[Rfam]
RNA sequence: AUUAUUUAAGGAUCGGAAAUGGCUUCCGACACGCUACUUUGUAGUAGACAGGUAUGCAGGGUACGCCGUCCUGCCAAAUAAU
Dot-bracket structure: (((((((...(.((((...[[[[..))))).(((((.....)))).....)....(((((....]]]].))))).)))))))

This 82-nucleotide RNA sequence belongs to the Rfam family "skipping-rope RNA". Rfam classes the family as a small RNA. It is one of the family's seed sequences.